[Rfam]
Nucleotides: 105
Stems, first nucleotide, its partner, number of pairs: 014077004024071004029066003034043002046063002049060003084105009
Number, partner (000 for none) and nucleotide at each position: 001000g002000c003000g004000a005000u006000g007000a008000g009000c010000u011000g012000a013000a014077u015076u016075g017074g018000a019000u020000a021000a022000g023000u024071c025070g026069a027068c028000c029066g030065a031064c032000a033000c034043u035042c036000c037000u038000u039000u040000u041000g042035g043034a044000a045000a046063u047062g048000c049060a050059c051058g052000a053000u054000g055000u056000g057000g058051c059050g060049u061000g062047c063046a064031g065030u066029c067000a068027g069026u070025c071024g072000c073000c074017c075016c076015a077014a078000u079000a080000c081000g082000c083000a084105a085104g086103g087102a088101c089100g090099c091098c092097u093000u094000u095000c096000g097092g098091g099090g100089c101088g102087u103086c104085c105084u

Notes
Rfam assigns this 105-nucleotide RNA sequence from Mesobacillus foraminis to the family "BsrF". For this family Rfam cites "Novel small RNA-encoding genes in the intergenic regions of Bacillus subtilis" (Saito et al., Gene, 2008). The base pairs follow the family's consensus structure, which was predicted with WAR.